[Rfam]
RNA sequence: AUGCUAUGAUAGUUGCACAGUUCAGCAGAUUGACUGCUGAAGAGAUGUACCAUUUGUCUGAUGUGAGU
Numbered sequence: 001a002u003g004c005u006a007u008g009a010u011a012g013u014u015g016c017a018c019a020g021u022u023c024a025g026c027a028g029a030u031u032g033a034c035u036g037c038u039g040a041a042g043a044g045a046u047g048u049a050c051c052a053u054u055u056g057u058c059u060g061a062u063g064u065g066a067g068u
Stems, first nucleotide, its partner, number of pairs: 002065003006038001009035001013028004043055005

Rfam assigns this 68-nucleotide RNA sequence from Phyllostomus discolor to the family "Small nucleolar RNA SNORD77". Rfam classes the family as a C/D-box small nucleolar RNA. Its family is annotated with nucleolus and RNA processing in the Gene Ontology. From the family's description: U77 belongs to the C/D family of snoRNAs. It is predicted to guide 2'O-ribose methylation of large 28S rRNA subunit at position A1521. The C/D snoRNAs U44, U47, U74, U75, U76, U78, U79, U80 and U81 share the same host gene as U77 (non-coding).